manA RNA: a 187-nucleotide RNA sequence.
About the family: manA RNA has been located in 5'UTR regions of genes of mannose or fructose metabolism. Has been proposed as a cis-regulatory element and as a riboswitch candidate for his complex secondary structure.
[Rfam]
RNA sequence: UGUUGGACGCAACAUUGGGAGUGACUGAAUAAACUUACUGGCAUAUAGCUGGUUAAGGUGAUACAACACAGGUGGUGCUGCUGCGAAAGCAGAAUCGACUUACCAGUCGGGUUGUAGGCAGAGAUGAUUUUCUAACUGUAGAAAUGCCCAUCUCUUGUUGGUACACAGGAAUCCAACCUCCCACCUC
Numbered sequence: 001u002g003u004u005g006g007a008c009g010c011a012a013c014a015u016u017g018g019g020a021g022u023g024a025c026u027g028a029a030u031a032a033a034c035u036u037a038c039u040g041g042c043a044u045a046u047a048g049c050u051g052g053u054u055a056a057g058g059u060g061a062u063a064c065a066a067c068a069c070a071g072g073u074g075g076u077g078c079u080g081c082u083g084c085g086a087a088a089g090c091a092g093a094a095u096c097g098a099c100u101u102a103c104c105a106g107u108c109g110g111g112u113u114g115u116a117g118g119c120a121g122a123g124a125u126g127a128u129u130u131u132c133u134a135a136c137u138g139u140a141g142a143a144a145u146g147c148c149c150a151u152c153u154c155u156u157g158u159u160g161g162u163a164c165a166c167a168g169g170a171a172u173c174c175a176a177c178c179u180c181c182c183a184c185c186u187c
Stems, first nucleotide, its partner, number of pairs: 001014005017182005024059002037053006062116006069080003073105004081092004095110005120155007129144004136168004157177005